[Rfam]
RNA: U1 spliceosomal RNA
Organism: Chenopodium quinoa
RNA sequence: AUACUUACCUGGACAGGGUGAAUGGGCGAUCAAAAAGCCCCACAGCCUAGGAAGGUAGCCUCCAUUGCACUUUGUGAGGGAUGCUUACCUAACAUCUUCCCAAAGAGGAAGAGUGUACGUCAUAAUUUGUGAGAGUGGGGGUCUGCGUUCGCGCAACCCCUAA
Number, nucleotide and partner (000 for none) at each position: 001a000002u000003a000004c000005u000006u000007a000008c000009c000010u000011g000012g121013a120014c119015a000016g048017g047018g046019u045020g000021a000022a000023u042024g041025g040026g039027c000028g000029a000030u000031c000032a000033a000034a000035a000036a000037g000038c000039c026040c025041c024042a023043c000044a000045g019046c018047c017048u016049a090050g089051g088052a000053a000054g000055g084056u083057a082058g000059c080060c079061u078062c076063c074064a000065u000066u000067g000068c000069a000070c000071u000072u000073u000074g063075u000076g062077a000078g061079g060080g059081a000082u057083g056084c055085u000086u000087a000088c051089c050090u049091a000092a116093c115094a114095u112096c111097u110098u000099c108100c107101c000102a000103a000104a000105g000106a000107g100108g099109a000110a097111g096112a095113g000114u094115g093116u092117a000118c000119g014120u013121c012122a000123u000124a000125a000126u000127u000128u000129g000130u000131g000132a000133g000134a000135g000136u162137g161138g160139g159140g158141g000142u000143c000144u155145g154146c153147g152148u000149u000150c000151g000152c147153g146154c145155a144156a000157c000158c140159c139160c138161u137162a136163a000